[Rfam]
RNA sequence: GUUGCGAUCCCUCCAGGGGUGAUGGGUGAC
Numbered sequence: 001g002u003u004g005c006g007a008u009c010c011c012u013c014c015a016g017g018g019g020u021g022a023u024g025g026g027u028g029a030c
Stems, first nucleotide, its partner, number of pairs: 001030005007020005

Shown here is a 30-nucleotide sequence from Plantactinospora sp. KBS50, a member of the family "CRISPR RNA direct repeat element". The family has 5 seed sequences and 447 matches in Rfam 15.1. Rfam links the family to the GO term defense response. Pairs were carried over by alignment from the consensus structure, which was predicted with WAR.